RNA sequence: GUGAUGCGCCGCCCCACCGCUGCGCAACCGGCCUAGGUCGGGAGCGGAGAGGAAAGUCCGGGCAACGCAGAGCACCCUGCUUCCUAACGGGAAGGACGGCGACUGGCGACGGCCGCCGGACAGCCAGUGCCACAGAAAACUACCGCCUAAGCUGCCCUCGGGCAGCCGGUAAGGGUGAAAAGGUGCGGUAAGAGCGCACCAGCGGGCGGGCAACCGUUCCGGCUGGGUAAACCUCAGGGGUUGAAAGGCCAAAUAGGCCGGCAGGCGGGGCUUCGGCUCCGCAACGGGCGGCUCGUUCGUUGUCGGCGGGUAGGCUGAUGGAGCCCACGCGCGAGUGUGGGCCUAGAUAAAUGGUGGGGCCGCUGCCCUUUGGGGUGGCGGACAGAACCCGGCUUACAGGCGCAUCACCAAA
Numbered sequence: 001g002u003g004a005u006g007c008g009c010c011g012c013c014c015c016a017c018c019g020c021u022g023c024g025c026a027a028c029c030g031g032c033c034u035a036g037g038u039c040g041g042g043a044g045c046g047g048a049g050a051g052g053a054a055a056g057u058c059c060g061g062g063c064a065a066c067g068c069a070g071a072g073c074a075c076c077c078u079g080c081u082u083c084c085u086a087a088c089g090g091g092a093a094g095g096a097c098g099g100c101g102a103c104u105g106g107c108g109a110c111g112g113c114c115g116c117c118g119g120a121c122a123g124c125c126a127g128u129g130c131c132a133c134a135g136a137a138a139a140c141u142a143c144c145g146c147c148u149a150a151g152c153u154g155c156c157c158u159c160g161g162g163c164a165g166c167c168g169g170u171a172a173g174g175g176u177g178a179a180a181a182g183g184u185g186c187g188g189u190a191a192g193a194g195c196g197c198a199c200c201a202g203c204g205g206g207c208g209g210g211c212a213a214c215c216g217u218u219c220c221g222g223c224u225g226g227g228u229a230a231a232c233c234u235c236a237g238g239g240g241u242u243g244a245a246a247g248g249c250c251a252a253a254u255a256g257g258c259c260g261g262c263a264g265g266c267g268g269g270g271c272u273u274c275g276g277c278u279c280c281g282c283a284a285c286g287g288g289c290g291g292c293u294c295g296u297u298c299g300u301u302g303u304c305g306g307c308g309g310g311u312a313g314g315c316u317g318a319u320g321g322a323g324c325c326c327a328c329g330c331g332c333g334a335g336u337g338u339g340g341g342c343c344u345a346g347a348u349a350a351a352u353g354g355u356g357g358g359g360c361c362g363c364u365g366c367c368c369u370u371u372g373g374g375g376u377g378g379c380g381g382a383c384a385g386a387a388c389c390c391g392g393c394u395u396a397c398a399g400g401c402g403c404a405u406c407a408c409c410a411a412a
Stems, first nucleotide, its partner, number of pairs: 001408010011397001012359007020049002023046003028041004054395003058392005063243004070294004075239005080094005095121001097118005122234002127232002129228003143174002145170003151166006182200006202223001203221003206217004247316004257307006285299005323342008
The record is a 412-nucleotide RNA from Hymenobacter oligotrophus, which matches "Bacterial RNase P class A" in Rfam.
The match comes from Rfam's covariance-model search (240 bits).